Shown here is a 66-nucleotide RNA from Pedobacter chitinilyticus, a member of the family "Fluoride riboswitch aptamer (crcB RNA motif)". The source organism's lineage runs through Bacteria, Pseudomonadati, Bacteroidota, Sphingobacteriia and Pedobacter. It scores 40 bits against the family's covariance model.

RNA sequence: UUGUAUAAAGGAAAUGGUGUCUUCCUAAUUGAACCGCCCUAAAAAGCUGAUGGCGCCUGGUUGCAA
Numbered sequence: 001u002u003g004u005a006u007a008a009a010g011g012a013a014a015u016g017g018u019g020u021c022u023u024c025c026u027a028a029u030u031g032a033a034c035c036g037c038c039c040u041a042a043a044a045a046g047c048u049g050a051u052g053g054c055g056c057c058u059g060g061u062u063g064c065a066a
Base pairs, nucleotide, nucleotide: 010025011024012023013022016057017056018055019054020053021052036047037046